[Rfam]
RNA sequence: ACAACAUUUGGACUGUCGGUCUACCGACCAAAUAUCACCCGCUCGGUGGAAGAUCUUCGCUUUAGCAU
Numbered sequence: 001a002c003a004a005c006a007u008u009u010g011g012a013c014u015g016u017c018g019g020u021c022u023a024c025c026g027a028c029c030a031a032a033u034a035u036c037a038c039c040c041g042c043u044c045g046g047u048g049g050a051a052g053a054u055c056u057u058c059g060c061u062u063u064a065g066c067a068u
Stems, first nucleotide, its partner, number of pairs: 006063001011058002015054003020050008029041001
Dot-bracket structure: .....(....((..(((..((((((((.(...........).)))))))).)))..))....).....
This 68-nucleotide sequence from Bombyx mori belongs to the Rfam family "mir-2774 microRNA precursor family". On this family, see Liu et al., BMC Genomics 2010: "MicroRNAs of Bombyx mori identified by Solexa sequencing".